[Rfam]
RNA sequence: GCUUUUUCCCCCAGGCUUGUUGGUGUAUACUACAGAGAAGCCUCCGAGUGCCAGGGAGAAAUGC
Numbered sequence: 001g002c003u004u005u006u007u008c009c010c011c012c013a014g015g016c017u018u019g020u021u022g023g024u025g026u027a028u029a030c031u032a033c034a035g036a037g038a039a040g041c042c043u044c045c046g047a048g049u050g051c052c053a054g055g056g057a058g059a060a061a062u063g064c
Base pairs, nucleotide, nucleotide: 001064002063004061008058010056011055014052015051016050018046019045022042023041024040025033026032
This 64-nucleotide RNA from Neogobius melanostomus belongs to the Rfam family "MAT2A 3'UTR stem loop A".
On this family, see Parker et al., Genome Res 2011: "New families of human regulatory RNA structures identified by comparative analysis of vertebrate genomes".
By type it is a cis-regulatory element.
The organism belongs to Neogobius, within Eukaryota.